[Rfam]
Shown here is a 78-nucleotide RNA from Caenorhabditis japonica, a member of the family "lin-4 microRNA precursor family".
RNA sequence: UCACGUCCUGUUCCCUGAGACCUCAAGUGUGAAAAUAUCUGAUAUCUCACACCUGGGCUCUCCGGGUACCAGGACGGU
Numbered sequence: 001u002c003a004c005g006u007c008c009u010g011u012u013c014c015c016u017g018a019g020a021c022c023u024c025a026a027g028u029g030u031g032a033a034a035a036u037a038u039c040u041g042a043u044a045u046c047u048c049a050c051a052c053c054u055g056g057g058c059u060c061u062c063c064g065g066g067u068a069c070c071a072g073g074a075c076g077g078u
Base pairs, nucleotide, nucleotide: 013066014065015064017062018061019060020059022057023056024055025054027052028051029050030049031048032047033045035043036042
The base pairs follow the family's consensus structure, which was predicted with RNAalifold.
It scores 79 bits against the family's covariance model.
Rfam 15.1 lists 35 matches to the family in 32 species.
Rfam links the family to the GO terms RISC complex and miRNA-mediated post-transcriptional gene silencing.
For this family Rfam cites "Control of developmental timing in animals" (Rougvie, Nat Rev Genet, 2001).